SAM-III riboswitch aptamer (SMK box): an 80-nucleotide RNA sequence from Enterococcus faecium. Its family is annotated with methionine adenosyltransferase activity and regulation of translational initiation in the Gene Ontology. NCBI's taxonomy places the organism under Bacteria, Bacilli, Enterococcaceae, Enterococcus, Enterococcus faecium. The family's consensus secondary structure is taken from published work.
RNA sequence: GUUCGUUGCAAGUUCCCGAAAGGAUCCGUAGGACGGAGAUGCCUUGUAACCGAAUUUAACUAGGGGGAAUCAUUAUAAUG
Numbered sequence: 001g002u003u004c005g006u007u008g009c010a011a012g013u014u015c016c017c018g019a020a021a022g023g024a025u026c027c028g029u030a031g032g033a034c035g036g037a038g039a040u041g042c043c044u045u046g047u048a049a050c051c052g053a054a055u056u057u058a059a060c061u062a063g064g065g066g067g068a069a070u071c072a073u074u075a076u077a078a079u080g
Base pairs, nucleotide, nucleotide: 013069014068015067016066017065020045021044022043023042025037026036027035028034029033050064051063
It is one of the family's seed sequences.